Shown here is a 101-nucleotide RNA from Marinococcus luteus, a member of the family "Purine riboswitch aptamer". NCBI's taxonomy places the organism under Bacteria, Bacillati, Bacilli, Bacillaceae, Marinococcus. Pairs were carried over by alignment from the consensus structure, which is taken from published work.
[Rfam]
RNA sequence: CAUGUUUACAGGUGAAUACCUCGUAUAGUUUGGGAUCAGGCCCAAAUGUCUCUACCCGGCCGCCGGAAAAUGGCUGGACUACGAGGGCAGUGAAGGACAGA
Numbered sequence: 001c002a003u004g005u006u007u008a009c010a011g012g013u014g015a016a017u018a019c020c021u022c023g024u025a026u027a028g029u030u031u032g033g034g035a036u037c038a039g040g041c042c043c044a045a046a047u048g049u050c051u052c053u054a055c056c057c058g059g060c061c062g063c064c065g066g067a068a069a070a071u072g073g074c075u076g077g078a079c080u081a082c083g084a085g086g087g088c089a090g091u092g093a094a095g096g097a098c099a100g101a
Stems, first nucleotide, its partner, number of pairs: 019086007029046006056077007